About this RNA:
The family of this 112-nucleotide RNA from Vibrio genomosp. F6 is "Alpha operon ribosome binding site". The family's RNA type in Rfam is cis-regulatory element. On this family, see Schlax et al., J Biol Chem 2001: "Translational repression of the Escherichia coli alpha operon mRNA: importance of an mRNA conformational switch and a ternary entrapment complex". Lineage of the source: Bacteria > Pseudomonadota > Gammaproteobacteria > Vibrionaceae > Vibrio genomosp. F6. About the family: The bacterial alpha operon ribosome binding site is surrounded by this complex pseudoknotted structure. Translation of the mRNA produces 4 ribosomal protein products, one of which (S4) acts as a translational repressor by binding to the nested pseudoknot region. The mechanism of repression is thought to involve a conformational switch in the pseudoknot region and ribosome entrapment. The family's consensus secondary structure is taken from published work. A search with the family's covariance model found it, with a score of 89 bits.
RNA sequence: AAAGAAGUAGUAUGCCGCAGCGUAUCCUCGACGGGCUUUGCUGCGGAUAAUUCUUUAUUAAAGUACCUAGGAGUGAAUAGUGGCCCGUAUAGCAGGCAUUAACAUUCCUGAU
Numbered sequence: 001a002a003a004g005a006a007g008u009a010g011u012a013u014g015c016c017g018c019a020g021c022g023u024a025u026c027c028u029c030g031a032c033g034g035g036c037u038u039u040g041c042u043g044c045g046g047a048u049a050a051u052u053c054u055u056u057a058u059u060a061a062a063g064u065a066c067c068u069a070g071g072a073g074u075g076a077a078u079a080g081u082g083g084c085c086c087g088u089a090u091a092g093c094a095g096g097c098a099u100u101a102a103c104a105u106u107c108c109u110g111a112u
Stems, first nucleotide, its partner, number of pairs: 004056004009051001011049003026096003032087004041110001